[Rfam]
RNA sequence: GCUAAGAGUUUUUCUUCGUCAGCCCAGCUGUGUGACAGUGGAAUCAUAGCUGGCUGCUGAAGAGAAUUCCUUUCA
Numbered sequence: 001g002c003u004a005a006g007a008g009u010u011u012u013u014c015u016u017c018g019u020c021a022g023c024c025c026a027g028c029u030g031u032g033u034g035a036c037a038g039u040g041g042a043a044u045c046a047u048a049g050c051u052g053g054c055u056g057c058u059g060a061a062g063a064g065a066a067u068u069c070c071u072u073u074c075a
Stems, first nucleotide, its partner, number of pairs: 005071002008068001011065007020056003025052005031046001032044002
Dot-bracket structure: ....((.(..(((((((..(((..(((((.(((.........)).).))))).)))..)))))))..).))....
The family of this 75-nucleotide RNA sequence from Branchiostoma lanceolatum is "mir-4900 microRNA precursor family". NCBI's taxonomy places the organism under Eukaryota, Eumetazoa, Cephalochordata, Leptocardii, Branchiostoma. It scores 66 bits against the family's covariance model.